[Rfam]
RNA sequence: AUCGUCCUUGUCUUGGGCAGUAUCUGUUCGAUGAGGGUCAACUGAGAGCAGAGUGCUGACAUCAUAAGACACAAUUAACCGCACCGCCGAACUCUUUGAAGUUUGGUAUGGGUGCAAUUUUUGGACCU
Numbered sequence: 001a002u003c004g005u006c007c008u009u010g011u012c013u014u015g016g017g018c019a020g021u022a023u024c025u026g027u028u029c030g031a032u033g034a035g036g037g038u039c040a041a042c043u044g045a046g047a048g049c050a051g052a053g054u055g056c057u058g059a060c061a062u063c064a065u066a067a068g069a070c071a072c073a074a075u076u077a078a079c080c081g082c083a084c085c086g087c088c089g090a091a092c093u094c095u096u097u098g099a100a101g102u103u104u105g106g107u108a109u110g111g112g113u114g115c116a117a118u119u120u121u122u123g124g125a126c127c128u
Base pairs, nucleotide, nucleotide: 005019007017008016009015020056021055022054023052024051025050026049027048028047029046035043036042081115082114083113084112085111087106088105089104090103091102092101

A member of the RNA family "U4atac minor spliceosomal RNA" from Araneus ventricosus, 128 nucleotides long.
The organism belongs to Araneus, within Eukaryota.
It is annotated as a spliceosomal small nuclear RNA.
Rfam's curators write: U4atac is an essential component of the minor U12-type spliceosome complex which is required for removal of the rarer class of eukaryotic introns (AT-AC, U12-type).
The family's consensus secondary structure is taken from published work.